[Rfam]
Plastid-rps18 3UTR RNA: a 57-nucleotide RNA from Aegilops tauschii.
A search with the family's covariance model found it, with a score of 61 bits.
Taxonomically the source falls in Aegilops tauschii (Eukaryota, Viridiplantae, Tracheophyta, Aegilops).
Plastid rps18 is a non-coding RNA (ncRNA) present in plastids. It was identified as a short stem-loop motif in the 3 prime untranslate region (3UTR) of rps18 gene.
The family has 238 seed sequences and 1,462 matches in Rfam 15.1.
Nucleotides: 057
Base pairs, nucleotide, nucleotide: 018037019036020035021034022033023032
Number, partner (000 for none) and nucleotide at each position: 001000u002000g003000c004000a005000a006000a007000c008000a009000u010000u011000u012000u013000a014000c015000g016000a017000u018037u019036a020035a021034g022033a023032a024000u025000c026000a027000a028000u029000u030000u031000c032023u033022u034021c035020u036019u037018g038000u039000a040000c041000a042000u043000g044000u045000u046000g047000u048000g049000u050000a051000u052000u053000a054000a055000u056000u057000u